[Rfam]
Record summary
The family of this 72-nucleotide RNA from Oryctolagus cuniculus is "Small nucleolar RNA SNORD101". Taxonomically the source falls in Oryctolagus (Eukaryota, Opisthokonta, Theria, Eutheria). By type it is a C/D-box small nucleolar RNA. A search with the family's covariance model found it, with a score of 51 bits. Rfam links the family to the GO terms nucleolus and RNA processing.
RNA sequence: UUUUAAAUGAUGAUUGAAACUGACAGAAAUCCCUUUACUCCUUCACAAAUGAAACACUGCAGUCUGACAAAA
Numbered sequence: 001u002u003u004u005a006a007a008u009g010a011u012g013a014u015u016g017a018a019a020c021u022g023a024c025a026g027a028a029a030u031c032c033c034u035u036u037a038c039u040c041c042u043u044c045a046c047a048a049a050u051g052a053a054a055c056a057c058u059g060c061a062g063u064c065u066g067a068c069a070a071a072a
Stems, first nucleotide, its partner, number of pairs: 001072004
Its Rfam clan is "SNORD101 clan".